Background
A member of the RNA family "Mason-Pfizer monkey virus packaging signal" from Nannospalax galili, 274 nucleotides long. A search with the family's covariance model found it, with a score of 154 bits. Pairs were carried over by alignment from the consensus structure, which was predicted with PFOLD.
[Rfam]
RNA sequence: UGACGCCCAGCGUGAGGGCUGGAUACGGAGGAUCCAGUGAGGGAAGAAGAUGUCUCCAAGGAACGUUCCACAACAAUUUUCACUCUGGACUUGCCACGGGAACCUGCCUCGGCUACAACCAGAAGUAAGUACAGACGUCUGAUUAUGGGACAAGAAAUAAGCAGGCAUGAACUUUAUGUUAGGCAAUUGCAAGAAGCCUUGAAGACACGAGGAGUAAAGGUUAAAAUAGAGGAUCUAUUAAGAUUCUUUGAAUUCAUUAAGGAAACCUGUCCUU
Numbered sequence: 001u002g003a004c005g006c007c008c009a010g011c012g013u014g015a016g017g018g019c020u021g022g023a024u025a026c027g028g029a030g031g032a033u034c035c036a037g038u039g040a041g042g043g044a045a046g047a048a049g050a051u052g053u054c055u056c057c058a059a060g061g062a063a064c065g066u067u068c069c070a071c072a073a074c075a076a077u078u079u080u081c082a083c084u085c086u087g088g089a090c091u092u093g094c095c096a097c098g099g100g101a102a103c104c105u106g107c108c109u110c111g112g113c114u115a116c117a118a119c120c121a122g123a124a125g126u127a128a129g130u131a132c133a134g135a136c137g138u139c140u141g142a143u144u145a146u147g148g149g150a151c152a153a154g155a156a157a158u159a160a161g162c163a164g165g166c167a168u169g170a171a172c173u174u175u176a177u178g179u180u181a182g183g184c185a186a187u188u189g190c191a192a193g194a195a196g197c198c199u200u201g202a203a204g205a206c207a208c209g210a211g212g213a214g215u216a217a218a219g220g221u222u223a224a225a226a227u228a229g230a231g232g233a234u235c236u237a238u239u240a241a242g243a244u245u246c247u248u249u250g251a252a253u254u255c256a257u258u259a260a261g262g263a264a265a266c267c268u269g270u271c272c273u274u
Stems, first nucleotide, its partner, number of pairs: 006031002012026003036053001038047001082126003085122002091117001092115002095111001098108002134151001138149004158201003161197002208250008218236005259274005